[Rfam]
RNA sequence: UACUUAUGAAAAGAAGGGAAGAUGGGUGGCCGAUGAUUAACUAAUCUUAUUUUAACUUUGAAGUUACGCAUUAAGUAUUUCAAAUUACAAAAUAGGAUUAGUCUGCCCAUUUUUCAAUAUUAUUUUUGUAAAGCUAUUAAAAAGAGAUAGCUUCUUUUCACAUUGAAAUUGCGACUAAUCCUUCCAAGUGAAAUUGGGAGGAUUUUUUA
Numbered sequence: 001u002a003c004u005u006a007u008g009a010a011a012a013g014a015a016g017g018g019a020a021g022a023u024g025g026g027u028g029g030c031c032g033a034u035g036a037u038u039a040a041c042u043a044a045u046c047u048u049a050u051u052u053u054a055a056c057u058u059u060g061a062a063g064u065u066a067c068g069c070a071u072u073a074a075g076u077a078u079u080u081c082a083a084a085u086u087a088c089a090a091a092a093u094a095g096g097a098u099u100a101g102u103c104u105g106c107c108c109a110u111u112u113u114u115c116a117a118u119a120u121u122a123u124u125u126u127u128g129u130a131a132a133g134c135u136a137u138u139a140a141a142a143a144g145a146g147a148u149a150g151c152u153u154c155u156u157u158u159c160a161c162a163u164u165g166a167a168a169u170u171g172c173g174a175c176u177a178a179u180c181c182u183u184c185c186a187a188g189u190g191a192a193a194u195u196g197g198g199a200g201g202a203u204u205u206u207u208u209a
Base pairs, nucleotide, nucleotide: 016115017114018113019112023109024108025107026106029103031101042100043099044098045097046096047095048094049093050092051091052090057084058083059082060081061080062079063078064077124160131153132152133151134150135149136148177204178203179202180201181200182199183198184197185196186195187194
RNA: Bacillus sRNA ncr1575